[Rfam]
RNA sequence: UAGGUGGAUUCCGAAAAACCUGUAAAUAGAGUAGGAU
Numbered sequence: 001u002a003g004g005u006g007g008a009u010u011c012c013g014a015a016a017a018a019c020c021u022g023u024a025a026a027u028a029g030a031g032u033a034g035g036a037u
Stems, first nucleotide, its partner, number of pairs: 002021004010036003
A member of the RNA family "DUF805b RNA", 37 nucleotides long.
Rfam's curators put it in the seed alignment.